[Rfam]
Nucleotides: 094
Base pairs, nucleotide, nucleotide: 006089007088008087009085010084011083012082013081020037021036022035023034039072040071041070042068043067046066047065048064052060053059
Number, partner (000 for none) and nucleotide at each position: 001000c002000a003000a004000u005000c006089c007088u008087c009085c010084g011083c012082g013081g014000a015000a016000g017000a018000g019000u020037u021036c022035a023034g024000c025000c026000g027000g028000a029000a030000a031000c032000g033000g034023c035022u036021g037020a038000c039072g040071c041070c042068g043067a044000a045000g046066g047065c048064g049000c050000a051000a052060c053059c054000g055000c056000c057000c058000c059053g060052g061000a062000a063000a064048c065047g066046c067043u068042c069000a070041g071040g072039c073000c074000c075000c076000c077000a078000g079000g080000a081013c082012c083011g084010c085009g086000c087008g088007a089006g090000g091000g092000a093000u094000g